A member of the RNA family "Glycine riboswitch aptamer" from Marinicauda pacifica, 91 nucleotides long.
NCBI's taxonomy places the organism under Bacteria, Pseudomonadati, Pseudomonadota, Maricaulaceae, Marinicauda.
The base pairs follow the family's consensus structure.
RNA sequence: GGCCUCCUUGCGGGAGAGACCGGCCGAAGACGCCGGCGCCGAAGGCGCAACCGCCCCGGAAACGCUCAGGCAACAGGACCGCGAGGUAUAU
Number, nucleotide and partner (000 for none) at each position: 001g000002g000003c000004c000005u000006c086007c085008u084009u083010g082011c081012g080013g079014g000015a000016g000017a000018g000019a000020c036021c035022g034023g033024c000025c000026g000027a000028a000029g000030a000031c000032g000033c023034c022035g021036g020037c000038g071039c070040c069041g067042a066043a000044g000045g065046c064047g063048c000049a000050a000051c059052c058053g000054c000055c000056c000057c000058g052059g051060a000061a000062a000063c047064g046065c045066u042067c041068a000069g040070g039071c038072a000073a000074c000075a000076g000077g000078a000079c013080c012081g011082c010083g009084a008085g007086g006087u000088a000089u000090a000091u000